[Rfam]
RNA sequence: UUGGCGGAUAGGAACCAGUUGAAGCUUGUGCAUUAAUUGGGCCGAAAACCGCCAAUAUUAUUGAGUACGCACUAAAGGUCGUAUGUGCCAUUUCAUGGGGCAUGUAUAUCACCAAUGCGCACUACAGUU
Numbered sequence: 001u002u003g004g005c006g007g008a009u010a011g012g013a014a015c016c017a018g019u020u021g022a023a024g025c026u027u028g029u030g031c032a033u034u035a036a037u038u039g040g041g042c043c044g045a046a047a048a049c050c051g052c053c054a055a056u057a058u059u060a061u062u063g064a065g066u067a068c069g070c071a072c073u074a075a076a077g078g079u080c081g082u083a084u085g086u087g088c089c090a091u092u093u094c095a096u097g098g099g100g101c102a103u104g105u106a107u108a109u110c111a112c113c114a115a116u117g118c119g120c121a122c123u124a125c126a127g128u129u
Stems, first nucleotide, its partner, number of pairs: 003053005011043002015040008024031002065122002068119004077113003081107002084104005089097002
RNA: Nematode snoRNA ceN39
Organism: Necator americanus